[Rfam]
This 89-nucleotide sequence from Dichanthelium oligosanthes belongs to the Rfam family "MIR2275 microRNA precursor family". The base pairs follow the family's consensus structure, which was predicted with RNAalifold. A search with the family's covariance model found it, with a score of 74 bits. Lineage of the source: Eukaryota > Embryophyta > Tracheophyta > commelinids > Dichanthelium.
RNA sequence: CCAUUCGAAGUGAGGAUUAGAAGGAACUGAACCGUCCACUGAAGAAAAGGAGCAAGGUUCAGUUUCCUCUAAUAUCUCAUCUCGAAUGG
Numbered sequence: 001c002c003a004u005u006c007g008a009a010g011u012g013a014g015g016a017u018u019a020g021a022a023g024g025a026a027c028u029g030a031a032c033c034g035u036c037c038a039c040u041g042a043a044g045a046a047a048a049g050g051a052g053c054a055a056g057g058u059u060c061a062g063u064u065u066c067c068u069c070u071a072a073u074a075u076c077u078c079a080u081c082u083c084g085a086a087u088g089g
Stems, first nucleotide, its partner, number of pairs: 004086005011079004016073006023066008032057002